[Rfam]
RNA sequence: ACCCCCGUAUCGGCGGCACGCCAUGAGGGCCGACCCGGCCCUGCCUCGCGGCGCUCUGCGACGGGCCGUCCGAACCGAGGAGCCAUG
Number, nucleotide and partner (000 for none) at each position: 001a000002c082003c000004c080005c079006c000007g000008u000009a000010u061011c060012g059013g000014c000015g055016g054017c053018a000019c050020g049021c048022c000023a000024u000025g045026a000027g041028g040029g039030c038031c037032g036033a000034c000035c000036c032037g031038g030039c029040c028041c027042u000043g000044c000045c025046u000047c000048g021049c020050g019051g000052c000053g017054c016055u015056c000057u000058g000059c012060g011061a010062c000063g000064g076065g075066c000067c000068g000069u000070c000071c000072g000073a000074a000075c065076c064077g000078a000079g005080g004081a000082g002083c000084c000085a000086u000087g000
Rfam assigns this 87-nucleotide RNA sequence from Streptomyces radiopugnans to the family "dauA ncRNA motif". Its family is annotated with regulation of gene expression in the Gene Ontology. About the family: dauA ncRNA motif was reported as a strong cis regulatory motif candidate, with potential to be a cis regulatory riboswitch type, it have been identified in genomes of the genus Streptomyces.